[Rfam]
RNA sequence: AUAAAUAAACAGGGGAGCUUGUAGACAGGCUGAGAGUAAGUUGUAAACUUAGACCCAUAACCUGAUUUGGAUAAUGCCAACGUAGGAACGAUACAUAGGACAGAGA
Numbered sequence: 001a002u003a004a005a006u007a008a009a010c011a012g013g014g015g016a017g018c019u020u021g022u023a024g025a026c027a028g029g030c031u032g033a034g035a036g037u038a039a040g041u042u043g044u045a046a047a048c049u050u051a052g053a054c055c056c057a058u059a060a061c062c063u064g065a066u067u068u069g070g071a072u073a074a075u076g077c078c079a080a081c082g083u084a085g086g087a088a089c090g091a092u093a094c095a096u097a098g099g100a101c102a103g104a105g106a
Base pairs, nucleotide, nucleotide: 008092010090012056013055014054017030018029019028020027021026037051038050039049040048041047061086062085063084064083067080068079069078070077
RNA: TPP riboswitch aptamer (THI element)